Shown here is an 82-nucleotide sequence from Muraenolepis orangiensis, a member of the family "mir-132 microRNA precursor family". Rfam links the family to the GO terms RISC complex and miRNA-mediated post-transcriptional gene silencing. The source organism's lineage runs through Eukaryota, Metazoa, Paracanthopterygii, Muraenolepidoidei and Muraenolepis. For this family Rfam cites "The developmental miRNA profiles of zebrafish as determined by small RNA cloning" (Chen et al., Genes Dev, 2005).
RNA sequence: CUCCAUGGCGACCGUGGCUUUAGAUUGUUACUCUAGCAACAGCACCAUGGUAACAGUCUACAGCCAUGGUCGUUAGGGACAG
Numbered sequence: 001c002u003c004c005a006u007g008g009c010g011a012c013c014g015u016g017g018c019u020u021u022a023g024a025u026u027g028u029u030a031c032u033c034u035a036g037c038a039a040c041a042g043c044a045c046c047a048u049g050g051u052a053a054c055a056g057u058c059u060a061c062a063g064c065c066a067u068g069g070u071c072g073u074u075a076g077g078g079a080c081a082g
Base pairs, nucleotide, nucleotide: 012069013068015066016065017064018063023058024057025056026055027054028053029052030051031050032049